[Rfam]
RNA sequence: UUUUAUCUGGCGGUUAAUAGGGUCCAGUUGCAUAAAAGCCCCGACAUUUCGGGGUUUUUUGUUAUUAGACAACAGAAUCACUGGGCUAUUAGGCCCUUUUUUU
Number, nucleotide and partner (000 for none) at each position: 001u000002u000003u000004u000005a000006u000007c000008u000009g000010g000011c000012g000013g000014u000015u000016a000017a000018u000019a000020g000021g000022g000023u000024c000025c000026a000027g000028u000029u000030g000031c000032a000033u000034a000035a058036a057037a056038g055039c054040c053041c052042c051043g050044a000045c000046a000047u000048u000049u000050c043051g042052g041053g040054g039055u038056u037057u036058u035059u000060u000061g000062u000063u000064a000065u000066u000067a000068g000069a000070c000071a000072a000073c000074a000075g000076a000077a000078u000079c000080a000081c000082u000083g096084g095085g094086c093087u000088a000089u000090u000091a000092g000093g086094c085095c084096c083097u000098u000099u000100u000101u000102u000103u000
Rfam assigns this 103-nucleotide RNA sequence from Affinibrenneria salicis to the family "Gammaprotebacteria rimP leader". Rfam classes the family as a cis-regulatory leader. A reference for the family is Naville and Gautheret (2010), "Premature terminator analysis sheds light on a hidden world of bacterial transcriptional attenuation", Genome Biol. Taxonomically the source falls in Affinibrenneria (Bacteria, Pseudomonadati, Gammaproteobacteria, Pectobacteriaceae). Pairs were carried over by alignment from the consensus structure, which is taken from published work.